[Rfam]
RNA: Glycine riboswitch aptamer
RNA sequence: AUGAAAAUAAGGGGAGAGACUGCUAAUGCAGCGCCGAAGGAGCAAGCUUUAAGGAGUGAAUCUCUCAGGCAAAAAGACUCUUAUUUGACG
Number, nucleotide and partner (000 for none) at each position: 001a000002u000003g000004a000005a000006a085007a084008u083009a082010a081011g080012g079013g078014g000015a000016g000017a000018g000019a000020c031021u030022g029023c028024u000025a000026a000027u000028g023029c022030a021031g020032c000033g070034c069035c068036g066037a065038a000039g000040g064041a063042g062043c000044a000045a000046g057047c056048u000049u000050u000051a000052a000053g000054g000055a000056g047057u046058g000059a000060a000061u000062c042063u041064c040065u037066c036067a000068g035069g034070c033071a000072a000073a000074a000075a000076g000077a000078c013079u012080c011081u010082u009083a008084u007085u006086u000087g000088a000089c000090g000